[Rfam]
RNA sequence: GUGCAAAAGAAGAAGCGCCCGCUUCUCACCUGACCGACUUGAAGUUGGCUGGUUAUAAGCUAAAGUGAAUGUGGAAUGAAAUCGAUCACUUGAACCUUAACAGACGUGGGCCCAUUGUGCCCGCGUCUUUUCUUUUUU
Numbered sequence: 001g002u003g004c005a006a007a008a009g010a011a012g013a014a015g016c017g018c019c020c021g022c023u024u025c026u027c028a029c030c031u032g033a034c035c036g037a038c039u040u041g042a043a044g045u046u047g048g049c050u051g052g053u054u055a056u057a058a059g060c061u062a063a064a065g066u067g068a069a070u071g072u073g074g075a076a077u078g079a080a081a082u083c084g085a086u087c088a089c090u091u092g093a094a095c096c097u098u099a100a101c102a103g104a105c106g107u108g109g110g111c112c113c114a115u116u117g118u119g120c121c122c123g124c125g126u127c128u129u130u131u132c133u134u135u136u137u138u
Stems, first nucleotide, its partner, number of pairs: 011026006028053003034048005103127009
The family of this 138-nucleotide RNA sequence from Paenibacillus sp. OAS669 is "Ribosomal protein L20 leader". Rfam describes the family as follows. This family is a putative r-protein leader autoregulatory structure found in B. subtilis and other low-GC Gram-positive bacteria. It is located in the 5' untranslated regions of mRNAs encoding initiation factor 3 followed by ribosomal proteins L35 and L20 (infC-rpmI-rplT). A Rho-independent transcription terminator structure that is probably involved in regulation is included at the 3' end. A reference for the family is Zengel and Lindahl (1994), "Diverse mechanisms for regulating ribosomal protein synthesis in Escherichia coli", Prog Nucleic Acid Res Mol Biol. It is annotated as a cis-regulatory leader. A search with the family's covariance model found it, with a score of 63 bits.